[Rfam]
RNA sequence: CGGUGGGCCACAUCUCCCCAACGAGAUGCGACCUUUCUGUGAGGAAAGGAGAC
Numbered sequence: 001c002g003g004u005g006g007g008c009c010a011c012a013u014c015u016c017c018c019c020a021a022c023g024a025g026a027u028g029c030g031a032c033c034u035u036u037c038u039g040u041g042a043g044g045a046a047a048g049g050a051g052a053c
Stems, first nucleotide, its partner, number of pairs: 011028006033048006

Rfam assigns this 53-nucleotide RNA sequence to the family "serC leader". This family is a putative regulatory RNA structure that is found upstream of the serC-serA operon in some alpha-proteobacteria. The final stem of the structure overlaps the ribosome binding site of the serC reading frame. It is one of the family's seed sequences. By type it is a cis-regulatory leader. Its family is annotated with regulation of gene expression in the Gene Ontology.